[Rfam]
A member of the RNA family "Pestivirus 3' UTR SLIV and SLII bovine viral diarrhea virus (BVDV-1)" from Orthopestivirus bovis, 128 nucleotides long. The source organism's lineage runs through Viruses, Kitrinoviricota, Flasuviricetes, Amarillovirales and Bovine viral diarrhea virus isolates and strains. The family's RNA type in Rfam is small RNA.
RNA sequence: AGCGAUAUGUAUAUAUUGUAUAUAAACAGUUACACAUAUAUGUAUUAAAUGUAAAUAUAGUUGAGAUUAGUAGUGAUAGAAAUUUAUCUACCUCAAGCUAACACUACACUCAAUGCACACAGCACUUU
Numbered sequence: 001a002g003c004g005a006u007a008u009g010u011a012u013a014u015a016u017u018g019u020a021u022a023u024a025a026a027c028a029g030u031u032a033c034a035c036a037u038a039u040a041u042g043u044a045u046u047a048a049a050u051g052u053a054a055a056u057a058u059a060g061u062u063g064a065g066a067u068u069a070g071u072a073g074u075g076a077u078a079g080a081a082a083u084u085u086a087u088c089u090a091c092c093u094c095a096a097g098c099u100a101a102c103a104c105u106a107c108a109c110u111c112a113a114u115g116c117a118c119a120c121a122g123c124a125c126u127u128u
Base pairs, nucleotide, nucleotide: 004046007043008042009041010040011039012038013037014036060114061113062112063111064110065109068106069105070104071103073102074101084100088097089096
Rfam's curators put it in the seed alignment. The family is grouped with related families in Rfam's "Pestivirus 3'UTR without 3'UTR-SL1".